Notes
A member of the RNA family "Lysine riboswitch aptamer" from Lactobacillus rodentium, 175 nucleotides long. The match comes from Rfam's covariance-model search (81 bits).
RNA sequence: CAAUGCAAUAGAGGUUGCGAUAGGUACAAAUUUAAAUGGAGCCCACGAAGGCUAAGAAGUUUAAAUUUAGACCUAUCGCCGAAAUGAGAGAUUUGUUCGUGAAAAUGUCUUGUUGGGCUACAAGAGAAGAUCUUGUAGACUGUCCUGGUAGUCCCCGGGGAGCGCUAUAUGAUUU
Numbered sequence: 001c002a003a004u005g006c007a008a009u010a011g012a013g014g015u016u017g018c019g020a021u022a023g024g025u026a027c028a029a030a031u032u033u034a035a036a037u038g039g040a041g042c043c044c045a046c047g048a049a050g051g052c053u054a055a056g057a058a059g060u061u062u063a064a065a066u067u068u069a070g071a072c073c074u075a076u077c078g079c080c081g082a083a084a085u086g087a088g089a090g091a092u093u094u095g096u097u098c099g100u101g102a103a104a105a106u107g108u109c110u111u112g113u114u115g116g117g118c119u120a121c122a123a124g125a126g127a128a129g130a131u132c133u134u135g136u137a138g139a140c141u142g143u144c145c146u147g148g149u150a151g152u153c154c155c156c157g158g159g160g161a162g163c164g165c166u167a168u169a170u171g172a173u174u175u
Base pairs, nucleotide, nucleotide: 008168009167010166011165017079018078019077020076021075022074023073024072025071030066031065032064033063034062035061036060037059083114084113085112086111087110088109089108091106092105093104094103115141116140118138119137120136121135122134123133124132125131143160144159145158146157147156148155